The record is a 148-nucleotide RNA from Clostridium argentinense, which matches "FMN riboswitch aptamer (RFN element)" in Rfam.
RNA sequence: UAAGUUCUUCAGGGCAGGGUGAAAUUCCCUACCGGCGGUAAAGCCCGCGAGCAGUUCAUGUAUAUGGAUUGCAGAUUUGGUGAAGCUGAUAAUUGAUUAUCUAGCAAUUCCAAAGCCGACAGUAAAGUCUGGAUGGGAGAAGAAGCAG
Number, nucleotide and partner (000 for none) at each position: 001u000002a000003a000004g000005u144006u143007c142008u141009u140010c139011a000012g000013g000014g000015c000016a000017g029018g028019g027020u000021g000022a000023a000024a000025u000026u000027c019028c018029c017030u000031a128032c127033c118034g117035g048036c047037g046038g045039u000040a000041a000042a000043g116044c115045c038046c037047g036048c035049g000050a000051g072052c071053a070054g000055u000056u000057c000058a000059u000060g000061u000062a000063u000064a000065u000066g000067g000068a000069u000070u053071g052072c051073a000074g000075a000076u114077u113078u112079g111080g110081u000082g000083a000084a000085g000086c000087u000088g000089a000090u000091a000092a000093u000094u000095g000096a000097u000098u000099a000100u000101c000102u000103a000104g000105c000106a000107a000108u000109u000110c080111c079112a078113a077114a076115g044116c043117c034118g033119a000120c131121a130122g129123u000124a000125a000126a000127g032128u031129c122130u121131g120132g000133a000134u000135g000136g000137g000138a000139g010140a009141a008142g007143a006144a005145g000146c000147a000148g000

NCBI's taxonomy places the organism under Bacteria, Clostridia, Clostridiaceae, Clostridium, Clostridium argentinense.